RNA sequence: CCCCGCGAAGCGAAAAACACGGCCCGGUUGGUAGUCCGGGCGCGGCGGGGCGAGUCCCAGCCCCAUGAGCCGUCAGUAACCUGCCUCCUUGGUUGUCCGCGCUCCGCGCAGUAUCU
Numbered sequence: 001c002c003c004c005g006c007g008a009a010g011c012g013a014a015a016a017a018c019a020c021g022g023c024c025c026g027g028u029u030g031g032u033a034g035u036c037c038g039g040g041c042g043c044g045g046c047g048g049g050g051c052g053a054g055u056c057c058c059a060g061c062c063c064c065a066u067g068a069g070c071c072g073u074c075a076g077u078a079a080c081c082u083g084c085c086u087c088c089u090u091g092g093u094u095g096u097c098c099g100c101g102c103u104c105c106g107c108g109c110a111g112u113a114u115c116u
Stems, first nucleotide, its partner, number of pairs: 004108004009103003022041006042073005083093003
Rfam assigns this 116-nucleotide RNA sequence from Flavonifractor sp. An10 to the family "azaaromatic riboswitch aptamer (yjdF RNA)". The match comes from Rfam's covariance-model search (73 bits). Pairs were carried over by alignment from the consensus structure, which is taken from published work.